[Rfam]
RNA sequence: GGCAUUCGAGGGACGCUGUCCCUCACCUCCCUGUUGGACUCGGCCGGACCUCGCGUCCGGCCUUUUUU
Numbered sequence: 001g002g003c004a005u006u007c008g009a010g011g012g013a014c015g016c017u018g019u020c021c022c023u024c025a026c027c028u029c030c031c032u033g034u035u036g037g038a039c040u041c042g043g044c045c046g047g048a049c050c051u052c053g054c055g056u057c058c059g060g061c062c063u064u065u066u067u068u
Stems, first nucleotide, its partner, number of pairs: 008024007042062008
Rfam assigns this 68-nucleotide RNA sequence from Jannaschia aquimarina to the family "Singlet oxygen resistance RNA X". NCBI's taxonomy places the organism under Bacteria, Alphaproteobacteria, Rhodobacterales, Roseobacteraceae, Jannaschia. For this family Rfam cites "Photooxidative stress-induced and abundant small RNAs in Rhodobacter sphaeroides" (Berghoff et al., Mol Microbiol, 2009). Rfam describes the family as follows. SorX (RSs2461)like SorY is a singlet oxygen induced sRNA that counteracts oxidative stress by targeting mRNA for a transporter in Rhodobacter. It also has an impact on resistance against organic hydroperoxides. It targets SD sequence of potA mRNA via an aSD sequence. The aSD sequence and some neighbouring nucleotides are identical to the one of SorY (targets takP mRNA).